[Rfam]
RNA sequence: UGAUGGCAGUGAUGAUCUUGUGUUGUUGCUCUCCUGAUGUACAGACAUGAGGGUGCACAGUCACUACCUCAUCUGAGCCAUCU
Numbered sequence: 001u002g003a004u005g006g007c008a009g010u011g012a013u014g015a016u017c018u019u020g021u022g023u024u025g026u027u028g029c030u031c032u033c034c035u036g037a038u039g040u041a042c043a044g045a046c047a048u049g050a051g052g053g054u055g056c057a058c059a060g061u062c063a064c065u066a067c068c069u070c071a072u073c074u075g076a077g078c079c080a081u082c083u
Base pairs, nucleotide, nucleotide: 002082003081004080005079006078007077
Rfam assigns this 83-nucleotide RNA sequence from Podilymbus podiceps to the family "Small nucleolar RNA SNORD11B". The base pairs follow the family's consensus structure, which was predicted with WAR. A reference for the family is Yang et al. (2006), "snoSeeker: an advanced computational package for screening of guide and orphan snoRNA genes in the human genome", Nucleic Acids Res. Taxonomically the source falls in Podilymbus (Eukaryota, Dinosauria, Neognathae, Mirandornithes). Gene Ontology terms of the family: nucleolus and RNA processing. A search with the family's covariance model found it, with a score of 82 bits.